Overview:
Molybdenum/Tungsten riboswitch aptamer (Moco RNA motif): a 139-nucleotide RNA from Thermacetogenium phaeum. Taxonomically the source falls in Thermacetogenium phaeum (Bacteria, Bacillati, Clostridia, Thermoanaerobacterales). It scores 60 bits against the family's covariance model.
RNA sequence: AAAAAAAGCAGGCUCCGAUUUAGCCUUCCUAAGGCCGUGAUGGCUAUGGAAGCUAAACGCAGGCUGUUGUAGUGGCCAUAGGGUAACGGGGAAACCCGGUUGCCUCCCAACCUUGGAAAGGAGUUGCUGAGCAUAGGCA
Numbered sequence: 001a002a003a004a005a006a007a008g009c010a011g012g013c014u015c016c017g018a019u020u021u022a023g024c025c026u027u028c029c030u031a032a033g034g035c036c037g038u039g040a041u042g043g044c045u046a047u048g049g050a051a052g053c054u055a056a057a058c059g060c061a062g063g064c065u066g067u068u069g070u071a072g073u074g075g076c077c078a079u080a081g082g083g084u085a086a087c088g089g090g091g092a093a094a095c096c097c098g099g100u101u102g103c104c105u106c107c108c109a110a111c112c113u114u115g116g117a118a119a120g121g122a123g124u125u126g127c128u129g130a131g132c133a134u135a136g137g138c139a
Stems, first nucleotide, its partner, number of pairs: 011125006019057006026051004033045004062077004081105007088097003106116002